[Rfam]
RNA sequence: AGAACCUUUAACGCAGUCCCGUGAGGCUGAAAAGGAAACGGUAGUGUUAGACGCUUAAAAGGAUACGUCUAUCCAACCCCCCCUUUUUCUUCGCGGAAAUGGGGGUUUUUUGC
Numbered sequence: 001a002g003a004a005c006c007u008u009u010a011a012c013g014c015a016g017u018c019c020c021g022u023g024a025g026g027c028u029g030a031a032a033a034g035g036a037a038a039c040g041g042u043a044g045u046g047u048u049a050g051a052c053g054c055u056u057a058a059a060a061g062g063a064u065a066c067g068u069c070u071a072u073c074c075a076a077c078c079c080c081c082c083c084u085u086u087u088u089c090u091u092c093g094c095g096g097a098a099a100u101g102g103g104g105g106u107u108u109u110u111u112g113c
Stems, first nucleotide, its partner, number of pairs: 005035005014029005046073001048071006056063001076108001079105005085099005
The family of this 113-nucleotide RNA sequence from Aquibacillus salsiterrae is "PyrR binding site". Rfam classes the family as a cis-regulatory element. Pairs were carried over by alignment from the consensus structure, which is taken from published work. About the family: This family represents the PyrR binding site and terminator structure. The match comes from Rfam's covariance-model search (59 bits).